Nucleotides: 125
Stems, first nucleotide, its partner, number of pairs: 003058006012048001014047002017044002022037004027032001071116005078108001080105002083102001085099005
Number, partner (000 for none) and nucleotide at each position: 001000c002000g003058g004057c005056g006055u007054c008053c009000a010000c011000a012048g013000a014047u015046g016000c017044a018043c019000a020000g021000g022037g023036a024035a025034c026000a027032g028000c029000c030000u031000g032027u033000g034025g035024u036023u037022c038000u039000u040000g041000c042000g043018g044017u045000c046015u047014g048012c049000a050000c051000u052000a053008g054007g055006g056005u057004g058003c059000g060000a061000g062000a063000g064000u065000a066000a067000a068000g069000a070000c071116c072115c073114c074113c075112a076000u077000g078108c079000u080105u081104c082000u083102g084000c085099c086098u087097g088096u089095c090000u091000u092000c093000g094000u095089g096088g097087c098086g099085g100000c101000c102083c103000c104081g105080a106000u107000u108078g109000a110000c111000c112075u113074g114073g115072g116071g117000a118000c119000u120000a121000c122000g123000u124000c125000g